[Rfam]
RNA sequence: UUUGGUGCAAUGAUUAUAAAAUAAUUCCUUGUUCUGAAUGCUGUUGCCACGGCAUGACAGACUCUUUACACCCAUAGAAUAUGAGCACCA
Numbered sequence: 001u002u003u004g005g006u007g008c009a010a011u012g013a014u015u016a017u018a019a020a021a022u023a024a025u026u027c028c029u030u031g032u033u034c035u036g037a038a039u040g041c042u043g044u045u046g047c048c049a050c051g052g053c054a055u056g057a058c059a060g061a062c063u064c065u066u067u068a069c070a071c072c073c074a075u076a077g078a079a080u081a082u083g084a085g086c087a088c089c090a
Stems, first nucleotide, its partner, number of pairs: 003090002006087002

Notes:
Small nucleolar RNA snoR8a: a 90-nucleotide sequence from Ipomoea nil. NCBI's taxonomy places the organism under Eukaryota, Streptophyta, lamiids, Ipomoeeae, Ipomoea. Rfam links the family to the GO terms nucleolus and RNA processing. The family's RNA type in Rfam is C/D-box small nucleolar RNA.